RNA: RAGATH-18 RNA
RNA sequence: CCUUGGGAGCGUCACAUAAACCGUAGUAGCUUCGGCAAAACGGGACGCGUUGAAUAAGGAA
Numbered sequence: 001c002c003u004u005g006g007g008a009g010c011g012u013c014a015c016a017u018a019a020a021c022c023g024u025a026g027u028a029g030c031u032u033c034g035g036c037a038a039a040a041c042g043g044g045a046c047g048c049g050u051u052g053a054a055u056a057a058g059g060a061a
Stems, first nucleotide, its partner, number of pairs: 001059005009048005021043003029036002